[Rfam]
RNA sequence: UUAGAUGUUAAUUGAUUUAUGUUUGGAUACACUUUAAUAAAAUUGAUUCUUAUGAGUUGAUGUUGUUUGGAUGA
Numbered sequence: 001u002u003a004g005a006u007g008u009u010a011a012u013u014g015a016u017u018u019a020u021g022u023u024u025g026g027a028u029a030c031a032c033u034u035u036a037a038u039a040a041a042a043u044u045g046a047u048u049c050u051u052a053u054g055a056g057u058u059g060a061u062g063u064u065g066u067u068u069g070g071a072u073g074a
Stems, first nucleotide, its partner, number of pairs: 011061008021053002025049004030045002033042002
Record summary: Rfam assigns this 74-nucleotide sequence from Medicago truncatula to the family "MIR5272 microRNA precursor family". The family's consensus secondary structure was predicted with RNAalifold. The family has 6 seed sequences and 271 matches in Rfam 15.1. Taxonomically the source falls in Medicago (Eukaryota, Pentapetalae, Fabales, Trifolieae).